Rfam assigns this 129-nucleotide RNA from Janibacter sp. HTCC2649 to the family "FMN riboswitch aptamer (RFN element)". Pairs were carried over by alignment from the consensus structure, which is taken from published work. Taxonomically the source falls in Janibacter (Bacteria, Bacillati, Actinomycetes, Intrasporangiaceae). A search with the family's covariance model found it, with a score of 93 bits.
RNA sequence: GACGUGCUCCGGGGUCGGUGCAAUUCCGAACCGGCGGUGACAGUCCGCGACCCGACCGCAGCCAGCGGUCGGUUGACUGGGUGGAACUCCCAGACCGACGGUUAAAGUCCGGAUGGUAGGCAGCACGCG
Numbered sequence: 001g002a003c004g005u006g007c008u009c010c011g012g013g014g015u016c017g018g019u020g021c022a023a024u025u026c027c028g029a030a031c032c033g034g035c036g037g038u039g040a041c042a043g044u045c046c047g048c049g050a051c052c053c054g055a056c057c058g059c060a061g062c063c064a065g066c067g068g069u070c071g072g073u074u075g076a077c078u079g080g081g082u083g084g085a086a087c088u089c090c091c092a093g094a095c096c097g098a099c100g101g102u103u104a105a106a107g108u109c110c111g112g113a114u115g116g117u118a119g120g121c122a123g124c125a126c127g128c129g
Stems, first nucleotide, its partner, number of pairs: 003127006009120002016028003030108002032097002034048004043095002052072002077093005099111003